[Rfam]
RNA sequence: UGGGGACACGCAGGCUCCCCUCUAGACGGCCUCUCCGUCCAAGCUCUGU
Numbered sequence: 001u002g003g004g005g006a007c008a009c010g011c012a013g014g015c016u017c018c019c020c021u022c023u024a025g026a027c028g029g030c031c032u033c034u035c036c037g038u039c040c041a042a043g044c045u046c047u048g049u
Stems, first nucleotide, its partner, number of pairs: 002020005010049005025039005
RNA: chrB-b RNA